[Rfam]
The record is a 201-nucleotide RNA from Arenibacter certesii, which matches "Group II catalytic intron D1-D4-3" in Rfam.

RNA sequence: GUAACUGCGAGGUUACAUCUGAAGGAAGCGAGACUACAAAACUCGGUACUGAUCCUUCGACUGCGCUCUGGACAGGCUAAACAGGAACCAGAUAUGAGGCUGUGAGGAUGGAUGAGCAAGCACAUCAUUGUAAAGUCCGAAACACUUUUAGGUGAAUGCCGAAGCAGUAGAUCUGGCAGGAAUCGAGGGAAAGAAGAUGUC
Numbered sequence: 001g002u003a004a005c006u007g008c009g010a011g012g013u014u015a016c017a018u019c020u021g022a023a024g025g026a027a028g029c030g031a032g033a034c035u036a037c038a039a040a041a042c043u044c045g046g047u048a049c050u051g052a053u054c055c056u057u058c059g060a061c062u063g064c065g066c067u068c069u070g071g072a073c074a075g076g077c078u079a080a081a082c083a084g085g086a087a088c089c090a091g092a093u094a095u096g097a098g099g100c101u102g103u104g105a106g107g108a109u110g111g112a113u114g115a116g117c118a119a120g121c122a123c124a125u126c127a128u129u130g131u132a133a134a135g136u137c138c139g140a141a142a143c144a145c146u147u148u149u150a151g152g153u154g155a156a157u158g159c160c161g162a163a164g165c166a167g168u169a170g171a172u173c174u175g176g177c178a179g180g181a182a183u184c185g186a187g188g189g190a191a192a193g194a195a196g197a198u199g200u201c
Stems, first nucleotide, its partner, number of pairs: 001016006028201001031198001037193001042187005047181001049179003088176006099168003103163001106160002110138004116131004
Pairs were carried over by alignment from the consensus structure. Gene Ontology term of the family: Group II intron splicing.